Rfam assigns this 217-nucleotide RNA from Mesorhizobium sp. WSM3876 to the family "Group II catalytic intron D1-D4-6".
The literature on the family includes a 2001 paper in Trends Genet by Bonen and Vogel, "The ins and outs of group II introns".
Rfam describes the family as follows. Group II introns are found in rRNA, tRNA and mRNA of organelles in fungi, plants and protists, and also in mRNA in bacteria.
The match comes from Rfam's covariance-model search (104 bits).
Its family is annotated with Group II intron splicing in the Gene Ontology.
Lineage of the source: Bacteria > Pseudomonadati > Pseudomonadota > Hyphomicrobiales > Mesorhizobium.
RNA sequence: CAAGUCCAUCCGGCCAAAACCUAGCGGGCAAGCGGGGGAGUCUUGCGGCCUCGCCGUAACGCGCGGGUCAGAAGUGUAGACAGGGAGCCAUGCCGGUGCGGGAUUGAGCCUCGAAAGGUGGAAGUUCGCGGAGGCCGAGUGUGUUCCCUUAACGCGAAGGCAGCAUGAGCACUCGUCGUUAUGCGAGACGAUAUCGCUCCGCCGGGAUCGAAGGCCG
Numbered sequence: 001c002a003a004g005u006c007c008a009u010c011c012g013g014c015c016a017a018a019a020c021c022u023a024g025c026g027g028g029c030a031a032g033c034g035g036g037g038g039a040g041u042c043u044u045g046c047g048g049c050c051u052c053g054c055c056g057u058a059a060c061g062c063g064c065g066g067g068u069c070a071g072a073a074g075u076g077u078a079g080a081c082a083g084g085g086a087g088c089c090a091u092g093c094c095g096g097u098g099c100g101g102g103a104u105u106g107a108g109c110c111u112c113g114a115a116a117g118g119u120g121g122a123a124g125u126u127c128g129c130g131g132a133g134g135c136c137g138a139g140u141g142u143g144u145u146c147c148c149u150u151a152a153c154g155c156g157a158a159g160g161c162a163g164c165a166u167g168a169g170c171a172c173u174c175g176u177c178g179u180u181a182u183g184c185g186a187g188a189c190g191a192u193a194u195c196g197c198u199c200c201g202c203c204g205g206g207a208u209c210g211a212a213g214g215c216c217g
Stems, first nucleotide, its partner, number of pairs: 010036002013033002020028002022186001024184002040081004044076002046071001047069003050065001052063003105211001106209001108208001110206004128202006134161003139155004166196003171192001173191005